[Rfam]
The record is a 271-nucleotide sequence from Aureibacillus halotolerans, which matches "BsrG" in Rfam. bsrE, bsrG and bsrH pair through intermolecular interactions with antisense sRNAs. The match comes from Rfam's covariance-model search (58 bits). The family has 6 seed sequences and 614 matches in Rfam 15.1. Gene Ontology terms of the family: autolysis and toxin activity. The family's RNA type in Rfam is small RNA.
RNA sequence: ACAAUAACGGAGCUCUUUGGGUGGAUCGGCACUCCUUUGAUGAAAGGGGGUGUUGCCAAUGACAGAUUACCAGAUCAUUAUGGUGAUUUUGAAAGUAAUCGGAUUAGUGAUUACUUUGAUGUUGUCGUUUGGAACACUGAUUUUUCUGUUAACACAGAAAAAAAAGUAACCCGCCCCUAGAGUUAGGCACUCAGGCGGGUUACUUUUCGCUUUUGGCCGAUCCAUUUAUGGAACCGUUGUUGCCAAGUCACAAGUGUUGGAAGCACUUGUG
Numbered sequence: 001a002c003a004a005u006a007a008c009g010g011a012g013c014u015c016u017u018u019g020g021g022u023g024g025a026u027c028g029g030c031a032c033u034c035c036u037u038u039g040a041u042g043a044a045a046g047g048g049g050g051u052g053u054u055g056c057c058a059a060u061g062a063c064a065g066a067u068u069a070c071c072a073g074a075u076c077a078u079u080a081u082g083g084u085g086a087u088u089u090u091g092a093a094a095g096u097a098a099u100c101g102g103a104u105u106a107g108u109g110a111u112u113a114c115u116u117u118g119a120u121g122u123u124g125u126c127g128u129u130u131g132g133a134a135c136a137c138u139g140a141u142u143u144u145u146c147u148g149u150u151a152a153c154a155c156a157g158a159a160a161a162a163a164a165a166g167u168a169a170c171c172c173g174c175c176c177c178u179a180g181a182g183u184u185a186g187g188c189a190c191u192c193a194g195g196c197g198g199g200u201u202a203c204u205u206u207u208c209g210c211u212u213u214u215g216g217c218c219g220a221u222c223c224a225u226u227u228a229u230g231g232a233a234c235c236g237u238u239g240u241u242g243c244c245a246a247g248u249c250a251c252a253a254g255u256g257u258u259g260g261a262a263g264c265a266c267u268u269g270u271g
Base pairs, nucleotide, nucleotide: 002242003241004240006238007237008236010234012218013182014181015180016179019177020176021175023171024170026168029053030052031051033049034048035047036046037045061150062149063148064147065146066145074088097142098141099140100139101138102137193211194210221232222231223230249271250270251269252268253267254266255265256264257263258262